U4atac minor spliceosomal RNA: a 124-nucleotide RNA from Sapajus apella. Rfam describes the family as follows. U4atac is an essential component of the minor U12-type spliceosome complex which is required for removal of the rarer class of eukaryotic introns (AT-AC, U12-type).
[Rfam]
RNA sequence: AACCACCCUUUCUUGUGGUUGCACAACUGUCCAAGGAGUGCAUAGUGAGGGAAGUACUGCUAAUACCUACACAGCACAUCCGCAUCAACAAGCUUUGCUUUACUUCGGUGCAAUUUUUGGAAAA
Number, nucleotide and partner (000 for none) at each position: 001a000002a000003c000004c000005a019006c018007c017008c000009u015010u000011u000012c000013u000014u000015g009016u000017g007018g006019u005020u000021g060022c059023a058024c000025a000026a055027c054028u053029g000030u051031c050032c049033a000034a000035g000036g000037a000038g046039u045040g000041c000042a000043u000044a000045g039046u038047g000048a000049g032050g031051g030052a000053a028054g027055u026056a000057c000058u023059g022060c021061u000062a000063a000064u000065a000066c000067c000068u000069a000070c000071a000072c000073a000074g000075c000076a000077c000078a000079u000080c000081c000082g111083c110084a109085u108086c107087a000088a000089c000090a100091a099092g098093c097094u000095u000096u000097g093098c092099u091100u090101u000102a000103c000104u000105u000106c000107g086108g085109u084110g083111c082112a000113a000114u000115u000116u000117u000118u000119g000120g000121a000122a000123a000124a000

It scores 83 bits against the family's covariance model.